The family of this 114-nucleotide sequence from Coturnix japonica is "Potassium channel RNA editing signal". Rfam links the family to the GO term adenosine to inosine editing. On this family, see Bhalla et al., Nat Struct Mol Biol 2004: "Control of human potassium channel inactivation by editing of a small mRNA hairpin". This family represents a group of sequences related to the human potassium channel Kv1.1 hairpin element which directs the efficient modification of an adenosine to inosine by an adenosine deaminase acting on RNA (ADAR). The ADAR modification causes an isoleucine/valine recoding event which lies in the ion-conducting pore of the potassium channel. It is thought that this editing event targets the process of fast inactivation and allows a more rapid recovery from inactivation at negative potentials. Lineage of the source: Eukaryota > Opisthokonta > Craniata > Galliformes > Coturnix. By type it is a cis-regulatory element. A search with the family's covariance model found it, with a score of 106 bits.

RNA sequence: GUGGGUUAUGGGGACAUGGCCCCCGUUACGGUGGGGGGGAAACUGGUGGGGUCUCUAUGCGCCAUCGCCGGGGUGCUGACCAUCGCCCUGCCCGUCCCUGUCAUCGUGUCCAAC
Numbered sequence: 001g002u003g004g005g006u007u008a009u010g011g012g013g014a015c016a017u018g019g020c021c022c023c024c025g026u027u028a029c030g031g032u033g034g035g036g037g038g039g040a041a042a043c044u045g046g047u048g049g050g051g052u053c054u055c056u057a058u059g060c061g062c063c064a065u066c067g068c069c070g071g072g073g074u075g076c077u078g079a080c081c082a083u084c085g086c087c088c089u090g091c092c093c094g095u096c097c098c099u100g101u102c103a104u105c106g107u108g109u110c111c112a113a114c
Stems, first nucleotide, its partner, number of pairs: 001114002004111002007108005013102004018097002021094001037077002040074001049063002